[Rfam]
RNA sequence: CAGAAAUGGGAGUUCCUUGCAGCCCAAAACAGUGAGAUCUAUCUCAGGUUCUUACUGUAAUUUUGGACUGAAGGGAGCUCCUAAUUCUU
Numbered sequence: 001c002a003g004a005a006a007u008g009g010g011a012g013u014u015c016c017u018u019g020c021a022g023c024c025c026a027a028a029a030c031a032g033u034g035a036g037a038u039c040u041a042u043c044u045c046a047g048g049u050u051c052u053u054a055c056u057g058u059a060a061u062u063u064u065g066g067a068c069u070g071a072a073g074g075g076a077g078c079u080c081c082u083a084a085u086u087c088u089u
Stems, first nucleotide, its partner, number of pairs: 007083012021069002024066005

The family of this 89-nucleotide sequence from Senna tora is "MIR319 microRNA precursor family". The organism belongs to Senna, within Eukaryota. Gene Ontology terms of the family: RISC complex and miRNA-mediated post-transcriptional gene silencing. The family has 11 seed sequences and 168 matches in Rfam 15.1.